[Rfam]
RNA sequence: CCCUAGCCUGGGGGGCCGAAAGGAAAGCCAGGACGCGGAUUAGUCGGGCAGUGCCGCGUUUCAGGAAAAACCCCGACAGCC
Numbered sequence: 001c002c003c004u005a006g007c008c009u010g011g012g013g014g015g016c017c018g019a020a021a022g023g024a025a026a027g028c029c030a031g032g033a034c035g036c037g038g039a040u041u042a043g044u045c046g047g048g049c050a051g052u053g054c055c056g057c058g059u060u061u062c063a064g065g066a067a068a069a070a071c072c073c074c075g076a077c078a079g080c081c
Base pairs, nucleotide, nucleotide: 001015002014003013004012007032008031009030010029011028016023017022034058035057036056037055038054043077044076045075046074047073
RNA: Proteo-phage-1 RNA